[Rfam]
Shown here is a 122-nucleotide RNA from Chaetops frenatus, a member of the family "Small nucleolar RNA SNORA55".
The family's consensus secondary structure was predicted with PFOLD.
From the family's description: ACA55 is a member of the H/ACA class of snoRNA that guide the sites of modification of uridines to pseudouridines.
A search with the family's covariance model found it, with a score of 64 bits.
NCBI's taxonomy places the organism under Eukaryota, Deuterostomia, Tetrapoda, Coelurosauria, Chaetops.
The family has 29 seed sequences and 1,476 matches in Rfam 15.1.

RNA sequence: GUACCUGCCUCUUUCCUUUUCCUUGCUGUGCAGGGGAGCUCUGGGGGCACUUGAUGCAGUGGGAAUCCAGAUGGGUUCUUCUCCACUGGUUUGGGACUCAUCUCUACACCUCUGCAACACCA
Numbered sequence: 001g002u003a004c005c006u007g008c009c010u011c012u013u014u015c016c017u018u019u020u021c022c023u024u025g026c027u028g029u030g031c032a033g034g035g036g037a038g039c040u041c042u043g044g045g046g047g048c049a050c051u052u053g054a055u056g057c058a059g060u061g062g063g064a065a066u067c068c069a070g071a072u073g074g075g076u077u078c079u080u081c082u083c084c085a086c087u088g089g090u091u092u093g094g095g096a097c098u099c100a101u102c103u104c105u106a107c108a109c110c111u112c113u114g115c116a117a118c119a120c121c122a
Stems, first nucleotide, its partner, number of pairs: 001048002004045002013038007021030001056115004061110001069103008083094003